[Rfam]
Overview
A member of the RNA family "opuB ncRNA motif" from Enterobacteriaceae bacterium RIT714, 137 nucleotides long. Rfam classes the family as a cis-regulatory element. Taxonomically the source falls in Enterobacteriaceae (Bacteria, Pseudomonadati, Pseudomonadota, Gammaproteobacteria). From the family's description: opuB ncRNA motif was reported as a strong cis regulatory motif candidate, with potential to be a cis regulatory riboswitch type, it have been identified in mostly from species of Enterobacteriaceae. The motif have been recognised mostly downstream-adjacent gene, opuB, annotated as coding for a proline/glycine ABC-transporter, whereas other related genes are known to be relevant to the transport of compatible solutes such as glycine, betaine, and choline of an uncharacterized ABC transporter with strong homology to amino acid transporters. Its family is annotated with regulation of gene expression in the Gene Ontology. Pairs were carried over by alignment from the consensus structure, which is taken from published work.
RNA sequence: UGAUUUUGCCCCUUCGCUGGAACCCUUCCCAUCCGCUUGCUAUAGCUCUUAUACCCCUGCCGAAACAUGGCAUAACAACAGGCAAUCAAUGGGUUGCUAUAACGCAUGCGCACAGGGAGACACACCGCAAUGCACUC
Numbered sequence: 001u002g003a004u005u006u007u008g009c010c011c012c013u014u015c016g017c018u019g020g021a022a023c024c025c026u027u028c029c030c031a032u033c034c035g036c037u038u039g040c041u042a043u044a045g046c047u048c049u050u051a052u053a054c055c056c057c058u059g060c061c062g063a064a065a066c067a068u069g070g071c072a073u074a075a076c077a078a079c080a081g082g083c084a085a086u087c088a089a090u091g092g093g094u095u096g097c098u099a100u101a102a103c104g105c106a107u108g109c110g111c112a113c114a115g116g117g118a119g120a121c122a123c124a125c126c127g128c129a130a131u132g133c134a135c136u137c
Base pairs, nucleotide, nucleotide: 013117014116015115019029020028021027034110035109036108038106039105040104058072059071060070061069062068081098082097083096084095085094086093
Dot-bracket structure: ............(((...(((.....)))....(((.(((.................(((((.....)))))........((((((......)))))).....))).)))....)))....................